[Rfam]
The family of this 70-nucleotide RNA sequence from Acyrthosiphon pisum is "mir-3017 microRNA precursor family". A search with the family's covariance model found it, with a score of 55 bits. Its family is annotated with RISC complex and miRNA-mediated post-transcriptional gene silencing in the Gene Ontology. Lineage of the source: Eukaryota > Allotriocarida > Hexapoda > Pterygota > Acyrthosiphon. The base pairs follow the family's consensus structure, which was predicted with RNAalifold. A reference for the family is Legeai et al. (2010), "Bioinformatic prediction, deep sequencing of microRNAs and expression analysis during phenotypic plasticity in the pea aphid, Acyrthosiphon pisum", BMC Genomics.
RNA sequence: CCGUGUUCUGGUCCUGACUCGGCUGACGCUGGAUUGGCGGGCGCCCGCUGGUCUGUCACAGACCACGGGA
Numbered sequence: 001c002c003g004u005g006u007u008c009u010g011g012u013c014c015u016g017a018c019u020c021g022g023c024u025g026a027c028g029c030u031g032g033a034u035u036g037g038c039g040g041g042c043g044c045c046c047g048c049u050g051g052u053c054u055g056u057c058a059c060a061g062a063c064c065a066c067g068g069g070a
Base pairs, nucleotide, nucleotide: 001068002067003066004065005064007062008061009060010059014055016053017052018051020050021049022048025045027043